A member of the RNA family "tRNA" from Gryllotalpicola protaetiae, 87 nucleotides long. Lineage of the source: Bacteria > Actinomycetes > Micrococcales > Microbacteriaceae > Gryllotalpicola. It scores 53 bits against the family's covariance model. The base pairs follow the family's consensus structure, which is taken from published work. Gene Ontology term of the family: triplet codon-amino acid adaptor activity.
[Rfam]
RNA sequence: GGUACCGUGUCCGAGCGGCCGAAGGAGCAUGUCUCGAAAACAUGUGACGGUGCAAGCCGUCCGUGGGUUCAAAUCCCACCGGUACCG
Numbered sequence: 001g002g003u004a005c006c007g008u009g010u011c012c013g014a015g016c017g018g019c020c021g022a023a024g025g026a027g028c029a030u031g032u033c034u035c036g037a038a039a040a041c042a043u044g045u046g047a048c049g050g051u052g053c054a055a056g057c058c059g060u061c062c063g064u065g066g067g068u069u070c071a072a073a074u075c076c077c078a079c080c081g082g083u084a085c086c087g
Stems, first nucleotide, its partner, number of pairs: 001086007010026003028044005063079005